Annotation: The record is a 101-nucleotide RNA from Natranaerovirga pectinivora, which matches "SAM riboswitch aptamer (S box leader)" in Rfam. Lineage of the source: Bacteria > Bacillati > Bacillota > Clostridia > Natranaerovirga. The match comes from Rfam's covariance-model search (85 bits).
RNA sequence: CUCUUAUAAAGAGAGGUGGAGGGACUGGCCCGAUGAAACCCGGCAACCGAUACAAAAGUAUUAUGGUGCUAAAUCCUGCAGAAAAAACUGAGAAAUAAGAG
Numbered sequence: 001c002u003c004u005u006a007u008a009a010a011g012a013g014a015g016g017u018g019g020a021g022g023g024a025c026u027g028g029c030c031c032g033a034u035g036a037a038a039c040c041c042g043g044c045a046a047c048c049g050a051u052a053c054a055a056a057a058g059u060a061u062u063a064u065g066g067u068g069c070u071a072a073a074u075c076c077u078g079c080a081g082a083a084a085a086a087a088c089u090g091a092g093a094a095a096u097a098a099g100a101g
Stems, first nucleotide, its partner, number of pairs: 001101007013041001015040003021031003025078001027076002042070004047066002049062004074093001079090003